[Rfam]
RNA sequence: UAUUGUGGUGGUUGCUGUGUGUGGCAGGUCUGUAAGUGUAUCAGAGCUGUCUCAGAGCUACCACAGAGAUGAGAAAGGAGAGGGCUGUGCUGAGAACUUUCAAGCCUGGAGUUUUCAGCUCUCUGUCCAGCUCCUACAGAA
Numbered sequence: 001u002a003u004u005g006u007g008g009u010g011g012u013u014g015c016u017g018u019g020u021g022u023g024g025c026a027g028g029u030c031u032g033u034a035a036g037u038g039u040a041u042c043a044g045a046g047c048u049g050u051c052u053c054a055g056a057g058c059u060a061c062c063a064c065a066g067a068g069a070u071g072a073g074a075a076a077g078g079a080g081a082g083g084g085c086u087g088u089g090c091u092g093a094g095a096a097c098u099u100u101c102a103a104g105c106c107u108g109g110a111g112u113u114u115u116c117a118g119c120u121c122u123c124u125g126u127c128c129a130g131c132u133c134c135u136a137c138a139g140a141a
Stems, first nucleotide, its partner, number of pairs: 005064007023051003027047001029045004077134004101125002104122001
A member of the RNA family "Small nucleolar RNA SNORA12" from Melospiza melodia, 141 nucleotides long. Pairs were carried over by alignment from the consensus structure, which was predicted with RNAalifold. A search with the family's covariance model found it, with a score of 49 bits. By type it is an H/ACA-box small nucleolar RNA. On this family, see Gu et al., Nucleic Acids Res 2005: "A novel experimental approach for systematic identification of box H/ACA snoRNAs from eukaryotes". Rfam describes the family as follows. U108 belongs to the H/ACA family of snoRNAs. The sequence is predicted to guide the pseudouridylation of the U372 residue in the 28S rRNA subunit. However it has not been reported as a pseudouridylation site.